Rfam assigns this 120-nucleotide sequence from Brucella anthropi to the family "Alphaproteobacterial ar14".
Rfam describes the family as follows. Smr14C2 was renamed NfeR1 (Nodule Formation Efficiency RNA) highly expressed in salt stress and during the symbiotic interaction on legume roots.
The match comes from Rfam's covariance-model search (95 bits).
[Rfam]
RNA sequence: GUUCAUCGCAGAACCAUCCUCCUCCCAGGUUUUGCGAUAACAAGACCGGUUCUCCUCCUCCCAAUGCCGGUCUUACCAUAAUGGCAUCCGUCGCUCCUCCUCCCGCGACGGAUGCCAUUU
Numbered sequence: 001g002u003u004c005a006u007c008g009c010a011g012a013a014c015c016a017u018c019c020u021c022c023u024c025c026c027a028g029g030u031u032u033u034g035c036g037a038u039a040a041c042a043a044g045a046c047c048g049g050u051u052c053u054c055c056u057c058c059u060c061c062c063a064a065u066g067c068c069g070g071u072c073u074u075a076c077c078a079u080a081a082u083g084g085c086a087u088c089c090g091u092c093g094c095u096c097c098u099c100c101u102c103c104c105g106c107g108a109c110g111g112a113u114g115c116c117a118u119u120u
Stems, first nucleotide, its partner, number of pairs: 007036003011032002014029002042074009084115011
Dot-bracket structure: ......(((.((.((............)).)).))).....(((((((((...............))))))))).........(((((((((((..........))))))))))).....